[Rfam]
RNA sequence: GUAUGCAGAAGAGGAGCGUUAACUAGGUAGUAAGCGAGAGGGCAAUCACCCCGCGGACAGCUUAUUAGGGAGAUUAACGCCGAGGUACGAUAGUGGUGAUGCACUGUUUGUAUCGAUCGCCUAGGCUGAAUCCUAGCGAUUGUCACCUGUUAAUUGUGGUGGAGAGCUUCUGGUAGC
Numbered sequence: 001g002u003a004u005g006c007a008g009a010a011g012a013g014g015a016g017c018g019u020u021a022a023c024u025a026g027g028u029a030g031u032a033a034g035c036g037a038g039a040g041g042g043c044a045a046u047c048a049c050c051c052c053g054c055g056g057a058c059a060g061c062u063u064a065u066u067a068g069g070g071a072g073a074u075u076a077a078c079g080c081c082g083a084g085g086u087a088c089g090a091u092a093g094u095g096g097u098g099a100u101g102c103a104c105u106g107u108u109u110g111u112a113u114c115g116a117u118c119g120c121c122u123a124g125g126c127u128g129a130a131u132c133c134u135a136g137c138g139a140u141u142g143u144c145a146c147c148u149g150u151u152a153a154u155u156g157u158g159g160u161g162g163a164g165a166g167c168u169u170c171u172g173g174u175a176g177c
Base pairs, nucleotide, nucleotide: 006172007171008170009169010168011167016080017079018078019077020076021075022074024072030065031064032063033062034061035060084114085113086112087111088110089109090107091106092105093104094103095102115141116140117139118138119137120136122135123134124133125132143162144161145160146159147158

The family of this 177-nucleotide RNA sequence from Shewanella gelidii is "Lysine riboswitch aptamer". Riboswitches are metabolite binding domains within certain messenger RNAs that serve as precision sensors for their corresponding targets. The family's consensus secondary structure is taken from published work. On this family, see Sudarsan et al., Genes Dev 2003: "An mRNA structure in bacteria that controls gene expression by binding lysine".